[Rfam]
RNA sequence: CCGUUCUUGUGUUAUUUGCUGAAUUUAGAUACUCGUUCAGUGAUUGUCAAACAGAACGCACAUUAAGUACCACCUUACUCCAUAAUGUUGAGCUGACUCUGGUCUAUAGCUUUUACAUUACUAAAAGCUGGUUACAUGC
Numbered sequence: 001c002c003g004u005u006c007u008u009g010u011g012u013u014a015u016u017u018g019c020u021g022a023a024u025u026u027a028g029a030u031a032c033u034c035g036u037u038c039a040g041u042g043a044u045u046g047u048c049a050a051a052c053a054g055a056a057c058g059c060a061c062a063u064u065a066a067g068u069a070c071c072a073c074c075u076u077a078c079u080c081c082a083u084a085a086u087g088u089u090g091a092g093c094u095g096a097c098u099c100u101g102g103u104c105u106a107u108a109g110c111u112u113u114u115a116c117a118u119u120a121c122u123a124a125a126a127g128c129u130g131g132u133u134a135c136a137u138g139c
Stems, first nucleotide, its partner, number of pairs: 002058006010049002016043007084119005091111004
A member of the RNA family "Small nucleolar RNA psi18S-1377" from Drosophila grimshawi, 139 nucleotides long. Its family is annotated with nucleolus and RNA processing in the Gene Ontology. Pairs were carried over by alignment from the consensus structure, which was predicted with RNAalifold. Rfam classes the family as an H/ACA-box small nucleolar RNA. About the family: psi18S-1377 is a member of the H/ACA class of snoRNA. This family is responsible for guiding the modification of uridines 1377 and 1279 to pseudouridine in Drosophila 18S rRNA.